[Rfam]
RNA sequence: GAAUGGCAAGAGUGAUGAAUCAAUUAGAUGUGUGAAUGGACAUUGAAAUUUUCCCAUUCUGAACUCAAACUUUUGAGGCAUAAUUAAAAUUUUUCUGACUUGCCAUUG
Number, nucleotide and partner (000 for none) at each position: 001g000002a107003a106004u105005g104006g103007c102008a101009a100010g099011a000012g000013u000014g000015a000016u000017g000018a000019a000020u000021c000022a000023a000024u000025u000026a000027g000028a000029u000030g000031u000032g000033u000034g000035a000036a000037u000038g000039g000040a000041c000042a000043u000044u000045g000046a000047a000048a000049u000050u000051u000052u000053c000054c000055c000056a000057u000058u000059c000060u000061g000062a000063a000064c000065u000066c000067a000068a000069a000070c000071u000072u000073u000074u000075g000076a000077g000078g000079c000080a000081u000082a000083a000084u000085u000086a000087a000088a000089a000090u000091u000092u000093u000094u000095c000096u000097g000098a000099c010100u009101u008102g007103c006104c005105a004106u003107u002108g000
Small nucleolar RNA Z266: a 108-nucleotide RNA from Durio zibethinus. The family has 11 seed sequences and 719 matches in Rfam 15.1. The family's RNA type in Rfam is C/D-box small nucleolar RNA. NCBI's taxonomy places the organism under Eukaryota, Tracheophyta, Mesangiospermae, rosids, Durio. The match comes from Rfam's covariance-model search (79 bits).